A member of the RNA family "chrB-b RNA", 52 nucleotides long. It is one of the family's seed sequences.

[Rfam]
Nucleotides: 052
Stems, first nucleotide, its partner, number of pairs: 001020006009052005029042005
Number, partner (000 for none) and nucleotide at each position: 001020u002019c003018g004017g005016g006015g007000c008000c009052g010051c011050a012049g013048a014000c015006c016005c017004c018003c019002g020001g021000c022000a023000u024000c025000c026000c027000a028000a029042a030041g031040c032039g033038g034000c035000u036000u037000g038033c039032c040031g041030u042029u043000c044000a045000a046000g047000u048013u049012c050011u051010g052009c

About this RNA:
It is annotated as a cis-regulatory element.